A member of the RNA family "Alphaproteobacterial sRNA ar7" from Rhizobium sp. JAB6, 144 nucleotides long. NCBI's taxonomy places the organism under Bacteria, Pseudomonadati, Alphaproteobacteria, Hyphomicrobiales, Rhizobium. A reference for the family is del Val et al. (2012), "A survey of sRNA families in alpha-proteobacteria", RNA Biol. The match comes from Rfam's covariance-model search (120 bits). The family's RNA type in Rfam is small RNA.
RNA sequence: CACCGGCGAUUGAUACGCCGCGGGUCUGACAACCGGCCUGUCCCCCGCCAUGUCAGACUAGGACAAAGGCCUAUCCCCUCUCCGGGCCUUUGUCCCUCUUUCAUGAGCCGCCAUGGCGUCCCCUCCAGGCCAUGGCGGCUUUUU
Numbered sequence: 001c002a003c004c005g006g007c008g009a010u011u012g013a014u015a016c017g018c019c020g021c022g023g024g025u026c027u028g029a030c031a032a033c034c035g036g037c038c039u040g041u042c043c044c045c046c047g048c049c050a051u052g053u054c055a056g057a058c059u060a061g062g063a064c065a066a067a068g069g070c071c072u073a074u075c076c077c078c079u080c081u082c083c084g085g086g087c088c089u090u091u092g093u094c095c096c097u098c099u100u101u102c103a104u105g106a107g108c109c110g111c112c113a114u115g116g117c118g119u120c121c122c123c124u125c126c127a128g129g130c131c132a133u134g135g136c137g138g139c140u141u142u143u144u
Base pairs, nucleotide, nucleotide: 025057026056027055028054029053030052031051035049036048037047061095062094063093064092065091066090067089068088069087070086071085105140108138109137110136111135112134113133114132115131116130117129119127